The family of this 116-nucleotide sequence from Sanguibacter sp. HDW7 is "SAM (S-adenosyl methionine) riboswitch aptamer". From the family's description: SAM-IV is a mRNA element that regulates gene expression via direct sensing of S-adenosylmethionine (SAM or AdoMet). SAM-IV riboswitches share conserved nucleotide positions with the previously described SAM-I riboswitches sequence analysis and molecular recognition experiments suggest that SAM-I and SAM-IV riboswitches share similar ligand binding sites, but have different scaffolds. The organism belongs to Sanguibacter, within Bacteria. A search with the family's covariance model found it, with a score of 61 bits. Pairs were carried over by alignment from the consensus structure, which is taken from published work.
RNA sequence: GGUCACGAGCGACCAGCGACACGCCCUCCGCGUGCUGGUCCGGCAACCGCGCAUAUCGCGCACGGUGCCCCAGGAGGAACACCGGCCCGUCCCGAUCGUGGCGGGAAGCGUGAGCA
Numbered sequence: 001g002g003u004c005a006c007g008a009g010c011g012a013c014c015a016g017c018g019a020c021a022c023g024c025c026c027u028c029c030g031c032g033u034g035c036u037g038g039u040c041c042g043g044c045a046a047c048c049g050c051g052c053a054u055a056u057c058g059c060g061c062a063c064g065g066u067g068c069c070c071c072a073g074g075a076g077g078a079a080c081a082c083c084g085g086c087c088c089g090u091c092c093c094g095a096u097c098g099u100g101g102c103g104g105g106a107a108g109c110g111u112g113a114g115c116a
Base pairs, nucleotide, nucleotide: 001083002082003081009041012039013038014037015036016035017034022032023031042069043068044067047065048064049063051061052060086105087104088103089102090101091100093098